[Rfam]
RNA sequence: GGUCGCAAGCUCAAGGCCACAGAAGAAGUGCUCAUGGCAUGGCCUGUCAGAUUCCAAAGAAAUCUGCAAAUUCUGCU
Numbered sequence: 001g002g003u004c005g006c007a008a009g010c011u012c013a014a015g016g017c018c019a020c021a022g023a024a025g026a027a028g029u030g031c032u033c034a035u036g037g038c039a040u041g042g043c044c045u046g047u048c049a050g051a052u053u054c055c056a057a058a059g060a061a062a063u064c065u066g067c068a069a070a071u072u073c074u075g076c077u
Stems, first nucleotide, its partner, number of pairs: 015044004021077002024074004028040003048066006
Rfam assigns this 77-nucleotide RNA sequence from Crocodylus porosus to the family "Mammalian CPEB3 ribozyme". Taxonomically the source falls in Crocodylus (Eukaryota, Metazoa, Eumetazoa, Deuterostomia). The mammalian CPEB3 ribozyme is a self cleaving RNA located in the second intron of the CPEB3 gene which belongs to a family of genes regulating messenger RNA polyadenylation. This ribozyme is highly conserved and found only in mammals. The CPEB3 ribozyme is structurally and biochemically related to the human hepatitis delta virus (HDV) ribozyme and the HDV ribozyme is proposed to have arisen from the human transcriptome. There is currently only one other known self cleaving ribozyme in mammals, the CoTC motif. The base pairs follow the family's consensus structure, which is taken from published work.